[Rfam]
A member of the RNA family "Ribosomal protein L10 leader" from Clostridium sp. CT7, 129 nucleotides long. The base pairs follow the family's consensus structure, which was predicted with CMfinder.

RNA sequence: AUUGAAUAUGUAAAUACUCCGUAGAAAGUAGGUGCGAAAGCGUAAAGGAUAUCCAACCUACCGAGGAUUCCAAUAUAUACGAAUAUAUGGUCUCUUCGUGGUCUACGGAGGGACCUUUAGUUUAUUGUG
Numbered sequence: 001a002u003u004g005a006a007u008a009u010g011u012a013a014a015u016a017c018u019c020c021g022u023a024g025a026a027a028g029u030a031g032g033u034g035c036g037a038a039a040g041c042g043u044a045a046a047g048g049a050u051a052u053c054c055a056a057c058c059u060a061c062c063g064a065g066g067a068u069u070c071c072a073a074u075a076u077a078u079a080c081g082a083a084u085a086u087a088u089g090g091u092c093u094c095u096u097c098g099u100g101g102u103c104u105a106c107g108g109a110g111g112g113a114c115c116u117u118u119a120g121u122u123u124a125u126u127g128u129g
Stems, first nucleotide, its partner, number of pairs: 028061006034041002090114010
Rfam classes the family as a cis-regulatory leader. A search with the family's covariance model found it, with a score of 60 bits.